[Rfam]
RNA sequence: UGGCAGCUCUGUGGGUCAGAACUGAGGCACAUUUAUACUGGGGGACAACGUGAGGGUCCGACGACAAGAAGAAGAAGGGGUGUGCACCUGAUCAAACAAUAGUUUGGAGACGUCGCGGUAGCCUGCUGUGACUGAGCCGACAGGUAAGUUGGUCGUGCAAUUUAAAUUAUGGGACCAACAUUGAGUCAGCAUCAGAAAUAUGUGAUACAGUUAAGAGAAGCUUUACAGGCAAGAGGAGUAAAGGUUACAACUGAGGAUUUAUUUCAUUUCUUUGAUUUUGUGAAAGACAUCUGCCCAU
Numbered sequence: 001u002g003g004c005a006g007c008u009c010u011g012u013g014g015g016u017c018a019g020a021a022c023u024g025a026g027g028c029a030c031a032u033u034u035a036u037a038c039u040g041g042g043g044g045a046c047a048a049c050g051u052g053a054g055g056g057u058c059c060g061a062c063g064a065c066a067a068g069a070a071g072a073a074g075a076a077g078g079g080g081u082g083u084g085c086a087c088c089u090g091a092u093c094a095a096a097c098a099a100u101a102g103u104u105u106g107g108a109g110a111c112g113u114c115g116c117g118g119u120a121g122c123c124u125g126c127u128g129u130g131a132c133u134g135a136g137c138c139g140a141c142a143g144g145u146a147a148g149u150u151g152g153u154c155g156u157g158c159a160a161u162u163u164a165a166a167u168u169a170u171g172g173g174a175c176c177a178a179c180a181u182u183g184a185g186u187c188a189g190c191a192u193c194a195g196a197a198a199u200a201u202g203u204g205a206u207a208c209a210g211u212u213a214a215g216a217g218a219a220g221c222u223u224u225a226c227a228g229g230c231a232a233g234a235g236g237a238g239u240a241a242a243g244g245u246u247a248c249a250a251c252u253g254a255g256g257a258u259u260u261a262u263u264u265c266a267u268u269u270c271u272u273u274g275a276u277u278u279u280g281u282g283a284a285a286g287a288c289a290u291c292u293g294c295c296c297a298u
Stems, first nucleotide, its partner, number of pairs: 001037002049063003101150003104146001111139002114130005156177002161173004182225003185221002233273006242260005283298001286295001288293001

Rfam assigns this 298-nucleotide RNA from Nannospalax galili to the family "Mason-Pfizer monkey virus packaging signal". Gene Ontology term of the family: viral genome packaging. Rfam 15.1 lists 2,921 matches to the family in 53 species. Lineage of the source: Eukaryota > Metazoa > Gnathostomata > Glires > Nannospalax.